The record is a 210-nucleotide RNA from Nonomuraea soli, which matches "Actinobacteria sRNA Ms_IGR-5" in Rfam. A search with the family's covariance model found it, with a score of 56 bits.
[Rfam]
RNA sequence: ACGCGGAAAGGAGGUGGUCCUAACAAUGGUGAUUCAUAGUUGGGCUAGCGAGGUGGCCGUCCGCUAAGGGCGCGAGUCGUCUCGCGCCUCUGAGGCGAAAUCGAGACAGCCACCGGAGCCCCGGGUAGCUGGAGGACGGCGACGCAAUGCCGUUCAUGGUCCAUCCAGCCCGUCCAUCCACGGACGGAGAGAGCCCGGGGCUCUUCAUAU
Dot-bracket structure: ............((((((.....................................))))))((((.((.(((((((....)))))))..)).).))).................((((((((((((..................................................................))))))))))))......
Numbered sequence: 001a002c003g004c005g006g007a008a009a010g011g012a013g014g015u016g017g018u019c020c021u022a023a024c025a026a027u028g029g030u031g032a033u034u035c036a037u038a039g040u041u042g043g044g045c046u047a048g049c050g051a052g053g054u055g056g057c058c059g060u061c062c063g064c065u066a067a068g069g070g071c072g073c074g075a076g077u078c079g080u081c082u083c084g085c086g087c088c089u090c091u092g093a094g095g096c097g098a099a100a101u102c103g104a105g106a107c108a109g110c111c112a113c114c115g116g117a118g119c120c121c122c123g124g125g126u127a128g129c130u131g132g133a134g135g136a137c138g139g140c141g142a143c144g145c146a147a148u149g150c151c152g153u154u155c156a157u158g159g160u161c162c163a164u165c166c167a168g169c170c171c172g173u174c175c176a177u178c179c180a181c182g183g184a185c186g187g188a189g190a191g192a193g194c195c196c197g198g199g200g201c202u203c204u205u206c207a208u209a210u
Stems, first nucleotide, its partner, number of pairs: 013061006062097003065093001067091002070087007115204012